[Rfam]
Annotation: A member of the RNA family "Small nucleolar RNA snoR97" from Papaver somniferum, 109 nucleotides long. The family has 7 seed sequences and 862 matches in Rfam 15.1. A reference for the family is Marker et al. (2002), "Experimental RNomics: identification of 140 candidates for small non-messenger RNAs in the plant Arabidopsis thaliana", Curr Biol. Gene Ontology terms of the family: RNA processing and nucleolus. Lineage of the source: Eukaryota > Embryophyta > Tracheophyta > Euphyllophyta > Papaver. Pairs were carried over by alignment from the consensus structure, which was predicted with WAR. The match comes from Rfam's covariance-model search (53 bits).
RNA sequence: GAUAACUUGUGGACAUGAGACUGAAAGAACUCAUACAGUGUGUGUUGGCCGUAGUAGCUUCUUCUCUCGUAUUUUAUGAGGAAUGGAGCUUGAUAACAGCACUACAUUU
Numbered sequence: 001g002a003u004a005a006c007u008u009g010u011g012g013a014c015a016u017g018a019g020a021c022u023g024a025a026a027g028a029a030c031u032c033a034u035a036c037a038g039u040g041u042g043u044g045u046u047g048g049c050c051g052u053a054g055u056a057g058c059u060u061c062u063u064c065u066c067u068c069g070u071a072u073u074u075u076a077u078g079a080g081g082a083a084u085g086g087a088g089c090u091u092g093a094u095a096a097c098a099g100c101a102c103u104a105c106a107u108u109u
Stems, first nucleotide, its partner, number of pairs: 042102006056090006063082001064080003